RNA sequence: GUAGAGUGGGGUAACGCCUGCUUGUAACCUACGUGGGGACAACAAGGUGGUGGGACUUCGGGUUGACUCAAGGAGCCGGGUUUACUGUGACCAUUUUCUGGCCCACCCGUUCUAAGCGUGGAGUCGAGUUAUGGGUCUUGAGUGUAGGCUCGGGCCUCGUGACUCCUAGAGUGGAAGGCAAAGCGUGAGGCUGGAUUCACAGAGCAGCGAUAACUCCCCACUCUUCGCAGUGGAAGGAUAACGGACCGGUGCCGUUUGGAUCCGAUAUGGCUCCGGCAGUCCUCCCUAAUCGGACCAACCCUUUU
Numbered sequence: 001g002u003a004g005a006g007u008g009g010g011g012u013a014a015c016g017c018c019u020g021c022u023u024g025u026a027a028c029c030u031a032c033g034u035g036g037g038g039a040c041a042a043c044a045a046g047g048u049g050g051u052g053g054g055a056c057u058u059c060g061g062g063u064u065g066a067c068u069c070a071a072g073g074a075g076c077c078g079g080g081u082u083u084a085c086u087g088u089g090a091c092c093a094u095u096u097u098c099u100g101g102c103c104c105a106c107c108c109g110u111u112c113u114a115a116g117c118g119u120g121g122a123g124u125c126g127a128g129u130u131a132u133g134g135g136u137c138u139u140g141a142g143u144g145u146a147g148g149c150u151c152g153g154g155c156c157u158c159g160u161g162a163c164u165c166c167u168a169g170a171g172u173g174g175a176a177g178g179c180a181a182a183g184c185g186u187g188a189g190g191c192u193g194g195a196u197u198c199a200c201a202g203a204g205c206a207g208c209g210a211u212a213a214c215u216c217c218c219c220a221c222u223c224u225u226c227g228c229a230g231u232g233g234a235a236g237g238a239u240a241a242c243g244g245a246c247c248g249g250u251g252c253c254g255u256u257u258g259g260a261u262c263c264g265a266u267a268u269g270g271c272u273c274c275g276g277c278a279g280u281c282c283u284c285c286c287u288a289a290u291c292g293g294a295c296c297a298a299c300c301c302u303u304u305u
Base pairs, nucleotide, nucleotide: 001040002039004023005022006021007020008019009018010017028037029036030035044304045303046302047301049299051297052296053295056292058289060287061285062284065281066280068278072274073273074272075271076270077269078263079262080261081260082259083258084257088254089253092251093250098249099248100247101246103244104243107237108236110235111234112233113232114231116228117227118226120224121223122222123221124220126165127164128163129162130161131160132159133158134157135156137154138153139152140151141150142149143148166171173218174217176215177214182211184209185208186207191202192201193200
This 305-nucleotide RNA sequence from Gossypium stocksii belongs to the Rfam family "Plant signal recognition particle RNA". NCBI's taxonomy places the organism under Eukaryota, Euphyllophyta, Pentapetalae, rosids, Gossypium. The family's RNA type in Rfam is non-coding RNA gene.